[Rfam]
RNA sequence: CGGCGCUUGAGGCUUUUGCCUCAUAGCCGUUGGUAGCAGUGCUGAUUUGUUGUGAGGCAGAAAGCAGAAAAGCCCCGAAGUUAAUUUUCAUUAACCCCGAGGCCCCUGUAUGCAUGAACAACAUCAGGAUAGCCUCUUACCAGCCGCAAGGCAAGGAGAAGACGGCCAUG
Numbered sequence: 001c002g003g004c005g006c007u008u009g010a011g012g013c014u015u016u017u018g019c020c021u022c023a024u025a026g027c028c029g030u031u032g033g034u035a036g037c038a039g040u041g042c043u044g045a046u047u048u049g050u051u052g053u054g055a056g057g058c059a060g061a062a063a064g065c066a067g068a069a070a071a072g073c074c075c076c077g078a079a080g081u082u083a084a085u086u087u088u089c090a091u092u093a094a095c096c097c098c099g100a101g102g103c104c105c106c107u108g109u110a111u112g113c114a115u116g117a118a119c120a121a122c123a124u125c126a127g128g129a130u131a132g133c134c135u136c137u138u139a140c141c142a143g144c145c146g147c148a149a150g151g152c153a154a155g156g157a158g159a160a161g162a163c164g165g166c167c168a169u170g
Stems, first nucleotide, its partner, number of pairs: 002075002005073004012065005017059006025051002077098001080095006099136005106128002110124003141161001144158001
sok antitoxin (CssrC): a 170-nucleotide RNA sequence from Erwinia sp. Leaf53.
The literature on the family includes a 2007 paper in Mol Microbiol by Kawano et al., "An antisense RNA controls synthesis of an SOS-induced toxin evolved from an antitoxin".
The match comes from Rfam's covariance-model search (87 bits).
It is annotated as an antitoxin RNA.
Pairs were carried over by alignment from the consensus structure, which is taken from published work.